Potassium channel RNA editing signal: a 114-nucleotide RNA sequence from Mytilus edulis. Rfam classes the family as a cis-regulatory element. The family's consensus secondary structure is taken from published work.
RNA sequence: GUUGGGUACGGAGAUAUGGUGCCGAAGACGUAUGUCGGAAUGUUUGUUGGCGCCCUCUGUGCAUUACUCGGCGUACUUACUAUAGCUUUACCCGUACCAGUUAUUGUCAGCAAC
Numbered sequence: 001g002u003u004g005g006g007u008a009c010g011g012a013g014a015u016a017u018g019g020u021g022c023c024g025a026a027g028a029c030g031u032a033u034g035u036c037g038g039a040a041u042g043u044u045u046g047u048u049g050g051c052g053c054c055c056u057c058u059g060u061g062c063a064u065u066a067c068u069c070g071g072c073g074u075a076c077u078u079a080c081u082a083u084a085g086c087u088u089u090a091c092c093c094g095u096a097c098c099a100g101u102u103a104u105u106g107u108c109a110g111c112a113a114c
Stems, first nucleotide, its partner, number of pairs: 001114002004111001008107004013102003018097001021095002037077002040074001050062002
Dot-bracket structure: ((.(...((((.(((..(..((..............((.(.........((.........))...........).))................)).)..))).))))...).))
Gene Ontology term of the family: adenosine to inosine editing.